ZMP/ZTP riboswitch aptamer (pfl RNA motif): an 82-nucleotide RNA sequence from Lachnoclostridium sp. An118. The organism belongs to Lachnoclostridium, within Bacteria.
RNA sequence: AAGUACUUAUACGACUGACGGAAGUGGAAUGGACCACAUGAAGUAUAGGGAAUGAUAAGAGCCGACCGUCUGGGCAUAAAAU
Numbered sequence: 001a002a003g004u005a006c007u008u009a010u011a012c013g014a015c016u017g018a019c020g021g022a023a024g025u026g027g028a029a030u031g032g033a034c035c036a037c038a039u040g041a042a043g044u045a046u047a048g049g050g051a052a053u054g055a056u057a058a059g060a061g062c063c064g065a066c067c068g069u070c071u072g073g074g075c076a077u078a079a080a081a082u
Stems, first nucleotide, its partner, number of pairs: 004051001006049007015040001017070005024037004059077001061075003